[Rfam]
The family of this 183-nucleotide RNA sequence from Firmicutes bacterium CAG:227 is "6S / SsrS RNA".
NCBI's taxonomy places the organism under Bacteria, Bacillati, Bacillota.
Pairs were carried over by alignment from the consensus structure, which is taken from published work.
RNA sequence: GUAAUCCUGGGUUGUGCGAUGCUCCUAUUAUUUUUGAACCUACAUUUACUUUAAACGGGAUUCCUAUAUUGCCAGUUGGAUGUCAGGCCGUCAUUGCGCAGCGGAAGGCAGAAGAGUGGUUGCGGUCACCCACCUAGCAACAGCUAGGAGUCAGAAGAUAGGAAACGGCAUCUCGGGAUUACU
Numbered sequence: 001g002u003a004a005u006c007c008u009g010g011g012u013u014g015u016g017c018g019a020u021g022c023u024c025c026u027a028u029u030a031u032u033u034u035u036g037a038a039c040c041u042a043c044a045u046u047u048a049c050u051u052u053a054a055a056c057g058g059g060a061u062u063c064c065u066a067u068a069u070u071g072c073c074a075g076u077u078g079g080a081u082g083u084c085a086g087g088c089c090g091u092c093a094u095u096g097c098g099c100a101g102c103g104g105a106a107g108g109c110a111g112a113a114g115a116g117u118g119g120u121u122g123c124g125g126u127c128a129c130c131c132a133c134c135u136a137g138c139a140a141c142a143g144c145u146a147g148g149a150g151u152c153a154g155a156a157g158a159u160a161g162g163a164a165a166c167g168g169c170a171u172c173u174c175g176g177g178a179u180u181a182c183u
Stems, first nucleotide, its partner, number of pairs: 002181010013170003017167002031158004035153003039148002057131003063125002068121001071120004076115002083108002088104004